[Rfam]
Nucleotides: 118
Stems, first nucleotide, its partner, number of pairs: 001118008013042005021031003025087004043079004048075002051071007083110001088106006
Number, partner (000 for none) and nucleotide at each position: 001118u002117u003116c004115u005114u006113a007112u008111c009000u010000a011000g012000a013042g014041a015040g016039g017038u018000g019000g020000a021031g022030g023029g024000a025087c026086u027085g028084g029023c030022c031021c032000a033000u034000c035000g036000a037000a038017g039016c040015c041014u042013c043079g044078g045077c046076a047000a048075c049074g050000g051071g052070u053069c054068u055067a056066a057065c058000c059000g060000u061000u062000a063000a064000a065057g066056u067055u068054a069053g070052a071051c072000g073000c074049u075048g076046u077045g078044c079043c080000a081000a082000u083110u084028c085027c086026a087025g088106c089105a090104g091103a092102u093101g094000c095000u096000g097000a098000a099000a100000g101093c102092a103091u104090u105089u106088g107000g108000a109000a110083a111008g112007a113006u114005a115004a116003g117002a118001a